The record is an 81-nucleotide RNA from Lupinus angustifolius, which matches "MIR319 microRNA precursor family" in Rfam. Rfam links the family to the GO terms RISC complex and miRNA-mediated post-transcriptional gene silencing.
[Rfam]
RNA sequence: AAGAACUAGGAGCUCCCUUCAGUCCAAAACAGCAUGAAUUUUUUACUACAUGUUUUGGGCUGCAAGGAACUCCUAUUUCUG
Numbered sequence: 001a002a003g004a005a006c007u008a009g010g011a012g013c014u015c016c017c018u019u020c021a022g023u024c025c026a027a028a029a030c031a032g033c034a035u036g037a038a039u040u041u042u043u044u045a046c047u048a049c050a051u052g053u054u055u056u057g058g059g060c061u062g063c064a065a066g067g068a069a070c071u072c073c074u075a076u077u078u079c080u081g
Base pairs, nucleotide, nucleotide: 007075008074009073010072011071012070014068015067016066018064021061022060024058025057026056027055028054
Dot-bracket structure: ......((((((.(((.(..((.(((((.........................))))).))..).))).))))))......

Annotation:
The organism belongs to Lupinus, within Eukaryota. The family has 11 seed sequences and 168 matches in Rfam 15.1.